[Rfam]
RNA sequence: CGCCCGCCACGCAACUGGCGUUCAAGGGCCGCGCAACGCGGUUCGAGGUGGGUCACCACCAGGGAGCGUGGACCGCAGCGACUCAAGCUCUUGAGACCUGCCGGUUUCCGCCGUGCGCCUGGGCAACCUCC
Numbered sequence: 001c002g003c004c005c006g007c008c009a010c011g012c013a014a015c016u017g018g019c020g021u022u023c024a025a026g027g028g029c030c031g032c033g034c035a036a037c038g039c040g041g042u043u044c045g046a047g048g049u050g051g052g053u054c055a056c057c058a059c060c061a062g063g064g065a066g067c068g069u070g071g072a073c074c075g076c077a078g079c080g081a082c083u084c085a086a087g088c089u090c091u092u093g094a095g096a097c098c099u100g101c102c103g104g105u106u107u108c109c110g111c112c113g114u115g116c117g118c119c120u121g122g123g124c125a126a127c128c129u130c131c
Base pairs, nucleotide, nucleotide: 003075007071008070009069010068011067012066015063016062017119018118019117020116021115048059049058050057051056110124111123112122

Shown here is a 131-nucleotide RNA from Sphaerotilus mobilis, a member of the family "ZMP/ZTP riboswitch aptamer (pfl RNA motif)". Taxonomically the source falls in Sphaerotilus (Bacteria, Pseudomonadati, Pseudomonadota, Burkholderiales). The family's consensus secondary structure is taken from published work.